[Rfam]
RNA sequence: UUCUGGCGGGUCUUGGCACUGGAAGAAUUCACAGAUGUGCAGUGUAUAAUCGUGGAUCUUGCAAUGCCAUCACUUGCUGGAU
Numbered sequence: 001u002u003c004u005g006g007c008g009g010g011u012c013u014u015g016g017c018a019c020u021g022g023a024a025g026a027a028u029u030c031a032c033a034g035a036u037g038u039g040c041a042g043u044g045u046a047u048a049a050u051c052g053u054g055g056a057u058c059u060u061g062c063a064a065u066g067c068c069a070u071c072a073c074u075u076g077c078u079g080g081a082u
Stems, first nucleotide, its partner, number of pairs: 003080008014069005020063002023059001025058002029055004034050001

Rfam assigns this 82-nucleotide sequence from Apis mellifera to the family "mir-263 microRNA precursor family".
Rfam links the family to the GO terms RISC complex and miRNA-mediated post-transcriptional gene silencing.
It is one of the family's seed sequences.
The family has 52 seed sequences and 368 matches in Rfam 15.1.
The family is grouped with related families in Rfam's "mir-182 clan".